[Rfam]
RNA sequence: AUAAUUAUGGCUCGCCGAGUUUUUCCGUCUAAGGUUUUUUAAAAGCUAUGACUGAAAAGCCGAUAGGUAGGAGGGGAAACGCUCAUGCCUCCCGUUUGGAAAGGAGAGCAAAAUGUAUGCAA
Numbered sequence: 001a002u003a004a005u006u007a008u009g010g011c012u013c014g015c016c017g018a019g020u021u022u023u024u025c026c027g028u029c030u031a032a033g034g035u036u037u038u039u040u041a042a043a044a045g046c047u048a049u050g051a052c053u054g055a056a057a058a059g060c061c062g063a064u065a066g067g068u069a070g071g072a073g074g075g076g077a078a079a080c081g082c083u084c085a086u087g088c089c090u091c092c093c094g095u096u097u098g099g100a101a102a103g104g105a106g107a108g109c110a111a112a113a114u115g116u117a118u119g120c121a122a
Base pairs, nucleotide, nucleotide: 003116006113011108012107013106015104016103019060020059021058022057023056024055025054027052028051029050033047034046035045036044065090066089067088068087069086071084072083073082075080091099092098
RNA: Molybdenum/Tungsten riboswitch aptamer (Moco RNA motif)
Organism: Syntrophomonas wolfei